[Rfam]
RNA sequence: GCUACUCGGACAAAUCAAAAAAUUACACACCUCUUCGUGGUAAGCAGCAGACAACGAUUUUAUGAUCGGCGAAGAUGUGAGA
Numbered sequence: 001g002c003u004a005c006u007c008g009g010a011c012a013a014a015u016c017a018a019a020a021a022a023u024u025a026c027a028c029a030c031c032u033c034u035u036c037g038u039g040g041u042a043a044g045c046a047g048c049a050g051a052c053a054a055c056g057a058u059u060u061u062a063u064g065a066u067c068g069g070c071g072a073a074g075a076u077g078u079g080a081g082a
Base pairs, nucleotide, nucleotide: 001048002047003046005044006043029041030040031039055068056067057066058065059064
A member of the RNA family "HDV ribozyme from F. prausnitzii" from Clostridium sp. C105KSO13, 82 nucleotides long. A search with the family's covariance model found it, with a score of 60 bits. For this family Rfam cites "Widespread occurrence of self-cleaving ribozymes" (Webb et al., Science, 2009). Rfam links the family to the GO term catalytic activity.